[Rfam]
RNA sequence: CGAGCAUGGUGAUGAUUGUUUAAUUCUACCGAUAAUUCAUGAAUGGAUUUACAAACCUCCUACUCAUUCUGA
Numbered sequence: 001c002g003a004g005c006a007u008g009g010u011g012a013u014g015a016u017u018g019u020u021u022a023a024u025u026c027u028a029c030c031g032a033u034a035a036u037u038c039a040u041g042a043a044u045g046g047a048u049u050u051a052c053a054a055a056c057c058u059c060c061u062a063c064u065c066a067u068u069c070u071g072a
Stems, first nucleotide, its partner, number of pairs: 006067004027046001030041001
Source information: Shown here is a 72-nucleotide RNA sequence from Lactuca sativa, a member of the family "Small nucleolar RNA Z105". A reference for the family is Chen et al. (2003), "The high diversity of snoRNAs in plants: identification and comparative study of 120 snoRNA genes from Oryza sativa", Nucleic Acids Res. Rfam 15.1 lists 621 matches to the family in 204 species. The family's RNA type in Rfam is C/D-box small nucleolar RNA. The family's consensus secondary structure was predicted with CMfinder.